[Rfam]
RNA: Lysine riboswitch aptamer
Organism: Brevibacillus centrosporus
RNA sequence: GGUGAGGAUAGAGGUCGCGGCUUUUAUAGUAUUCUGUACGAGAUUCAGACGAAAUCUAAGACUACAGAAGAGGGAAAAGCCGCCGAAGUCCAUUGUGCAUCGCUGUGCUCAUGGGCUGGGUCUGUUCUCGAAAGGGACAGAACUGUCACGUUUGCUUGCCCGGCAAACGUGGUGCGCUAUCUUCAGU
Numbered sequence: 001g002g003u004g005a006g007g008a009u010a011g012a013g014g015u016c017g018c019g020g021c022u023u024u025u026a027u028a029g030u031a032u033u034c035u036g037u038a039c040g041a042g043a044u045u046c047a048g049a050c051g052a053a054a055u056c057u058a059a060g061a062c063u064a065c066a067g068a069a070g071a072g073g074g075a076a077a078a079g080c081c082g083c084c085g086a087a088g089u090c091c092a093u094u095g096u097g098c099a100u101c102g103c104u105g106u107g108c109u110c111a112u113g114g115g116c117u118g119g120g121u122c123u124g125u126u127c128u129c130g131a132a133a134g135g136g137a138c139a140g141a142a143c144u145g146u147c148a149c150g151u152u153u154g155c156u157u158g159c160c161c162g163g164c165a166a167a168c169g170u171g172g173u174g175c176g177c178u179a180u181c182u183u184c185a186g187u
Base pairs, nucleotide, nucleotide: 006182007181008180009179010178011177017083018082019081020080021079022078023077024076025075032069033068034067035066036065037064038063087117088116089115090114091113092112093111095109118144119143121141122140123139124138125137126136127135128134146172147171148170149169150168151167152166153165154164